A member of the RNA family "MIR9563 microRNA precursor family" from Brassica oleracea, 126 nucleotides long. Its family is annotated with miRNA-mediated post-transcriptional gene silencing and RISC complex in the Gene Ontology. Pairs were carried over by alignment from the consensus structure, which was predicted with RNAalifold. The family has 2 seed sequences and 5,832 matches in Rfam 15.1.
[Rfam]
RNA sequence: GGAAUAUAAAAAUCCGUCUUUUAACUUUUAACUAAAAAAAACUAAGAACCGGUUCUUAAAUAAGAUAUUUAAGAACCGGUUUAUAGCUCUUUUUAGUAAAAAUUAAGAGACGAGUUAUUAUAUUCC
Dot-bracket structure: (((((((((.(((.((((((((((.(((((.(((((.(.(.(((.(((...............................))).)))...)))))))))))).)))))))))).))).)))))))))